Shown here is an 81-nucleotide sequence from Paenibacillus athensensis, a member of the family "ZMP/ZTP riboswitch aptamer (pfl RNA motif)". Pairs were carried over by alignment from the consensus structure, which is taken from published work. A search with the family's covariance model found it, with a score of 52 bits.
RNA sequence: AAGACUCGGUGUAACUGGCGACGAGUGGGCGCAACCACAAUGGAGCAUCGGGGCAUACGGCCGGUCGCCUGGGCAAAAGAG
Numbered sequence: 001a002a003g004a005c006u007c008g009g010u011g012u013a014a015c016u017g018g019c020g021a022c023g024a025g026u027g028g029g030c031g032c033a034a035c036c037a038c039a040a041u042g043g044a045g046c047a048u049c050g051g052g053g054c055a056u057a058c059g060g061c062c063g064g065u066c067g068c069c070u071g072g073g074c075a076a077a078a079g080a081g
Stems, first nucleotide, its partner, number of pairs: 003054001005052008015042001017069005025038004060074003